[Rfam]
RNA sequence: CCUCGUCUUCCCGCCGCGGUGCCCGUCCCACCCGCUGUCCCGGCAUUGCCGCGAUGCCAGGACAGCGGGUGGGACGGGCACCGCGGCGGGAAGACGAGGCGCA
Numbered sequence: 001c002c003u004c005g006u007c008u009u010c011c012c013g014c015c016g017c018g019g020u021g022c023c024c025g026u027c028c029c030a031c032c033c034g035c036u037g038u039c040c041c042g043g044c045a046u047u048g049c050c051g052c053g054a055u056g057c058c059a060g061g062a063c064a065g066c067g068g069g070u071g072g073g074a075c076g077g078g079c080a081c082c083g084c085g086g087c088g089g090g091a092a093g094a095c096g097a098g099g100c101g102c103a
Base pairs, nucleotide, nucleotide: 010090011089012088013087014086015085016084018082019081021079022078023077024076025075026074027073028072029071030070031069032068033067034066035065036064037063038062039061040060042058043057044056045055046054
RNA: mraW RNA